The record is a 122-nucleotide RNA sequence from Bacterioplanoides sp. SCSIO 12839, which matches "Ribosomal S15 leader" in Rfam. Its family is annotated with regulation of translation, ncRNA-mediated in the Gene Ontology. From the family's description: The E. coli Ribosomal S15 gene 5' UTR can form two alternative structures. One that is a series of three hairpins, The other includes a pseudoknot. This structure causes translational regulation of the S15 protein. Clan: Ribosomal Protein S15 Leader clan.
RNA sequence: GCAUCCCACUGUUAAUGUGCACGGUGGUGAUGUCUUUAAAUGCACAUUCAUUGGAGUAUAUACAGAUGGCAUUAUCUGCUGAAAAGAAAGCUGAGAUUGUAAACGAGUACAAAACUGCUGAA
Number, nucleotide and partner (000 for none) at each position: 001g000002c000003a000004u000005c000006c000007c026008a025009c024010u023011g022012u021013u000014a000015a000016u000017g000018u000019g000020c000021a012022c011023g010024g009025u008026g007027g000028u000029g000030a000031u000032g000033u000034c000035u000036u000037u000038a000039a000040a000041u000042g000043c000044a000045c000046a000047u000048u000049c000050a000051u000052u074053g073054g072055a000056g070057u000058a000059u000060a000061u000062a000063c000064a000065g000066a000067u000068g000069g000070c056071a000072u054073u053074a052075u000076c000077u000078g000079c000080u000081g000082a000083a000084a000085a000086g000087a000088a000089a000090g000091c000092u000093g000094a000095g000096a000097u000098u000099g000100u000101a000102a000103a000104c000105g000106a000107g000108u000109a000110c000111a000112a000113a000114a000115c000116u000117g000118c000119u000120g000121a000122a000
The base pairs follow the family's consensus structure, which is taken from published work. The organism belongs to Bacterioplanoides, within Bacteria.